RNA: abiF RNA
RNA sequence: CCUGCCAAGCCUCUUCACCAUGCUUAAAUUGGCAGGU
Numbered sequence: 001c002c003u004g005c006c007a008a009g010c011c012u013c014u015u016c017a018c019c020a021u022g023c024u025u026a027a028a029u030u031g032g033c034a035g036g037u
Stems, first nucleotide, its partner, number of pairs: 001036006008024003